[Rfam]
RNA sequence: CUGCGAUAAUAGCAAACUCAUCGAAAGGUGAGGACGCAAAGCUACGGGCCUAAGGAAGGAUCACUUCUAUUGGUCGCCGAGUUGCCGAA
Numbered sequence: 001c002u003g004c005g006a007u008a009a010u011a012g013c014a015a016a017c018u019c020a021u022c023g024a025a026a027g028g029u030g031a032g033g034a035c036g037c038a039a040a041g042c043u044a045c046g047g048g049c050c051u052a053a054g055g056a057a058g059g060a061u062c063a064c065u066u067c068u069a070u071u072g073g074u075c076g077c078c079g080a081g082u083u084g085c086c087g088a089a
Stems, first nucleotide, its partner, number of pairs: 012037002017032006040083004045079003048074003055067004

The record is an 89-nucleotide sequence from Insulibacter thermoxylanivorax, which matches "c-di-GMP-I riboswitch aptamer" in Rfam. The match comes from Rfam's covariance-model search (79 bits).